The record is a 32-nucleotide sequence, which matches "S4-Flavobacteria ribosomal protein leader" in Rfam. A reference for the family is Eckert and Weinberg (2020), "Discovery of 20 novel ribosomal leader candidates in bacteria and archaea", BMC Microbiol. The base pairs follow the family's consensus structure, which is taken from published work.
RNA sequence: AGUUAUCGAAGGAUAAGCCUUAAUUCAUAGCU
Numbered sequence: 001a002g003u004u005a006u007c008g009a010a011g012g013a014u015a016a017g018c019c020u021u022a023a024u025u026c027a028u029a030g031c032u
Stems, first nucleotide, its partner, number of pairs: 001032006008026001009021004